[Rfam]
RNA sequence: UUUCCCUAAUAAAGCAACCCUCGUAUAAGUUCGGGAAUAUGGCCCGAAAGUUUCUACCCGAGAACCUUAAAUUCUUCGGACUACGAGCCUAUUUGAAGAACGG
Numbered sequence: 001u002u003u004c005c006c007u008a009a010u011a012a013a014g015c016a017a018c019c020c021u022c023g024u025a026u027a028a029g030u031u032c033g034g035g036a037a038u039a040u041g042g043c044c045c046g047a048a049a050g051u052u053u054c055u056a057c058c059c060g061a062g063a064a065c066c067u068u069a070a071a072u073u074c075u076u077c078g079g080a081c082u083a084c085g086a087g088c089c090u091a092u093u094u095g096a097a098g099a100a101c102g103g
Base pairs, nucleotide, nucleotide: 020087021086022085023084024083025082030048031047032046033045034044035043058079059078060077061076062074063073064072
Dot-bracket structure: ...................((((((....((((((.......)))))).........(((((((.......))).))))..))))))................
Description: This 103-nucleotide sequence from Paenibacillus methanolicus belongs to the Rfam family "Purine riboswitch aptamer". Pairs were carried over by alignment from the consensus structure, which is taken from published work.